[Rfam]
RNA: Small nucleolar RNA SNORD83
Organism: Chelonoidis abingdonii
RNA sequence: GCCAAAUGAUGUAAAGUAGCUGACAUUAGCACUGUGUGCAAAGAUGACUUAAAUCUGUCACCCAAUAUUGAUGGUU
Numbered sequence: 001g002c003c004a005a006a007u008g009a010u011g012u013a014a015a016g017u018a019g020c021u022g023a024c025a026u027u028a029g030c031a032c033u034g035u036g037u038g039c040a041a042a043g044a045u046g047a048c049u050u051a052a053a054u055c056u057g058u059c060a061c062c063c064a065a066u067a068u069u070g071a072u073g074g075u076u
Base pairs, nucleotide, nucleotide: 001075002074003073004072029039030038031037032036